Fluoride riboswitch aptamer (crcB RNA motif): an 84-nucleotide RNA sequence from Phormidium tenue. A search with the family's covariance model found it, with a score of 54 bits.
[Rfam]
RNA sequence: CAUAGAAAAGGCGAUGGAGCUCGCCAAAACCGCCCUACGUGAGUCAGAUUUGACCGCCUAAGGGCUAAUGGCUCCUACUCAUUC
Numbered sequence: 001c002a003u004a005g006a007a008a009a010g011g012c013g014a015u016g017g018a019g020c021u022c023g024c025c026a027a028a029a030c031c032g033c034c035c036u037a038c039g040u041g042a043g044u045c046a047g048a049u050u051u052g053a054c055c056g057c058c059u060a061a062g063g064g065c066u067a068a069u070g071g072c073u074c075c076u077a078c079u080c081a082u083u084c
Stems, first nucleotide, its partner, number of pairs: 010025004016075006032065004